[Rfam]
RNA sequence: GGUUCUGUAUGAUAUGUUUGAUAUUAGUUUGUUUUACUGGAAUCGACAAAUAUCAUACAUAUUACUACAGGGCC
Numbered sequence: 001g002g003u004u005c006u007g008u009a010u011g012a013u014a015u016g017u018u019u020g021a022u023a024u025u026a027g028u029u030u031g032u033u034u035u036a037c038u039g040g041a042a043u044c045g046a047c048a049a050a051u052a053u054c055a056u057a058c059a060u061a062u063u064a065c066u067a068c069a070g071g072g073c074c
Stems, first nucleotide, its partner, number of pairs: 005070005011063007019055007027047001029046003
The family of this 74-nucleotide RNA sequence from Hymenochirus boettgeri is "mir-190 microRNA precursor family". Taxonomically the source falls in Hymenochirus (Eukaryota, Amphibia, Batrachia, Pipinae). Its Rfam clan is "mir-50 clan".